The record is a 96-nucleotide RNA from Methanohalophilus mahii, which matches "Pyrrolysine insertion sequence mtbB" in Rfam.

[Rfam]
RNA sequence: UAGGAGUUGGCGACCCAAUCGGUAUGCCAAUCUCACAUAUCAUGGCAUCCGGUCUUACAGGAAUGCGUGCAGCCGGUGACCUUGUUGCCAGGAUGC
Numbered sequence: 001u002a003g004g005a006g007u008u009g010g011c012g013a014c015c016c017a018a019u020c021g022g023u024a025u026g027c028c029a030a031u032c033u034c035a036c037a038u039a040u041c042a043u044g045g046c047a048u049c050c051g052g053u054c055u056u057a058c059a060g061g062a063a064u065g066c067g068u069g070c071a072g073c074c075g076g077u078g079a080c081c082u083u084g085u086u087g088c089c090a091g092g093a094u095g096c
Base pairs, nucleotide, nucleotide: 003034006031007030008029009028010027011026012025013023014022015021069088070087071086072085073084075082076081
Record summary
Rfam classes the family as a cis-regulatory element. The family's consensus secondary structure was predicted with WAR. The sequence is in the family's curated seed alignment. Its family is annotated with pyrrolysine incorporation in the Gene Ontology.